The record is a 50-nucleotide RNA sequence from Phoenix dactylifera, which matches "Guanidine-II riboswitch aptamer (mini-ykkC)" in Rfam. NCBI's taxonomy places the organism under Eukaryota, Embryophyta, Tracheophyta, Petrosaviidae, Phoenix. Rfam's curators write: Simpler in structure and has fewer highly conserved nucleotide positions than the ykkC-yxkD leader. Despite this each of its two stem-loop structures directly bind free guanidine. Therefore, mini-ykkC RNA motif represents a distinct class of guanidine-sensing RNAs. Its crystal structure was also determined.
[Rfam]
RNA sequence: CCUCGGGGACGACUCCAGAAGUCUGCUUUUUACUCGCGGGGACGACUCCG
Dot-bracket structure: (.((((((....)))).)).)...............(((((....)))))